[Rfam]
RNA sequence: CGAGUAAACCAGACAGUCGCUGCUGCUAUCUUAGCAGGAGAGGAAAGUCCGAGCUCCAUAGGGCAGGGUGCUGGGUAACUCCCAGUGGAGGCGACUCUAAGGAAAGUGCAACAGAGAUAUACCGCCUAGUUUUCUAGGUAAGGAUGGAAAGGCGAGGUAAGAGCUCACCAGCACAUAGGUGACUAUGUGGCUAUGUAAACCCCAUCUGGAGCAAGAUCGAAUAGGGAGACAUUAUGGGGCGGCCCGUCCCGUCUCCGGGUGAAUCGCUUGAGCUUAUUGGUAACAAUAGGCCUAGAUAGAUGACUGUUUAAUACAGAACUCGGCUUAUAGGGUUACUCGUACC
Numbered sequence: 001c002g003a004g005u006a007a008a009c010c011a012g013a014c015a016g017u018c019g020c021u022g023c024u025g026c027u028a029u030c031u032u033a034g035c036a037g038g039a040g041a042g043g044a045a046a047g048u049c050c051g052a053g054c055u056c057c058a059u060a061g062g063g064c065a066g067g068g069u070g071c072u073g074g075g076u077a078a079c080u081c082c083c084a085g086u087g088g089a090g091g092c093g094a095c096u097c098u099a100a101g102g103a104a105a106g107u108g109c110a111a112c113a114g115a116g117a118u119a120u121a122c123c124g125c126c127u128a129g130u131u132u133u134c135u136a137g138g139u140a141a142g143g144a145u146g147g148a149a150a151g152g153c154g155a156g157g158u159a160a161g162a163g164c165u166c167a168c169c170a171g172c173a174c175a176u177a178g179g180u181g182a183c184u185a186u187g188u189g190g191c192u193a194u195g196u197a198a199a200c201c202c203c204a205u206c207u208g209g210a211g212c213a214a215g216a217u218c219g220a221a222u223a224g225g226g227a228g229a230c231a232u233u234a235u236g237g238g239g240c241g242g243c244c245c246g247u248c249c250c251g252u253c254u255c256c257g258g259g260u261g262a263a264u265c266g267c268u269u270g271a272g273c274u275u276a277u278u279g280g281u282a283a284c285a286a287u288a289g290g291c292c293u294a295g296a297u298a299g300a301u302g303a304c305u306g307u308u309u310a311a312u313a314c315a316g317a318a319c320u321c322g323g324c325u326u327a328u329a330g331g332g333u334u335a336c337u338c339g340u341a342c343c
Base pairs, nucleotide, nucleotide: 001339002338003337004336005335006334007333009331010330011328012308013307014306015305016304017303018302020040021039023037024036025035026034027033028032045326046325047324049323050322051321052320053319054211055210056209057208061245062244063243064242066207067206068205069204070203071085072084073083074082075081086100087098088097089096090095101202102201106200107199108196109195110194122143123142124139125138126137127136128135129134151169152168154166155165156164171191172189173188174187175186176185177184178183215265216264217263225256226255227254228253229252230251236250237249238248239247240246272291273290274289275288276287277286278285279284
This 343-nucleotide RNA from Hathewaya histolytica belongs to the Rfam family "Bacterial RNase P class A". Lineage of the source: Bacteria > Bacillati > Bacillota > Clostridiaceae > Hathewaya. The family's RNA type in Rfam is ribozyme. It scores 315 bits against the family's covariance model. Pairs were carried over by alignment from the consensus structure, which is taken from published work.